Rfam assigns this 155-nucleotide RNA sequence to the family "FMN riboswitch aptamer (RFN element)".
About the family: The RFN element is a highly conserved domain that is found frequently in the 5'-untranslated regions of prokaryotic mRNAs that encode for flavin mononucleotide (FMN) biosynthesis and transport proteins. This element is a metabolite-dependent riboswitch that directly binds FMN in the absence of proteins.

RNA sequence: AUAGCCCUCGGGGAUCGGGUGUAAGUCCCGACCGGCGGUGAUCCUUGCCCCACAUCUGUGGUGCUGGUAGCCCGCGAACCUGCCGCAGCCUGUGGCGGGCCGACUAGGUGAGACUCCUAGGCCGACGGUCAAAGUCCGGAUGAAAUGGGGGCGAC
Numbered sequence: 001a002u003a004g005c006c007c008u009c010g011g012g013g014a015u016c017g018g019g020u021g022u023a024a025g026u027c028c029c030g031a032c033c034g035g036c037g038g039u040g041a042u043c044c045u046u047g048c049c050c051c052a053c054a055u056c057u058g059u060g061g062u063g064c065u066g067g068u069a070g071c072c073c074g075c076g077a078a079c080c081u082g083c084c085g086c087a088g089c090c091u092g093u094g095g096c097g098g099g100c101c102g103a104c105u106a107g108g109u110g111a112g113a114c115u116c117c118u119a120g121g122c123c124g125a126c127g128g129u130c131a132a133a134g135u136c137c138g139g140a141u142g143a144a145a146u147g148g149g150g151g152c153g154a155c
Stems, first nucleotide, its partner, number of pairs: 004152007017029003031135002033124002035075004070122002079099002104120005126138003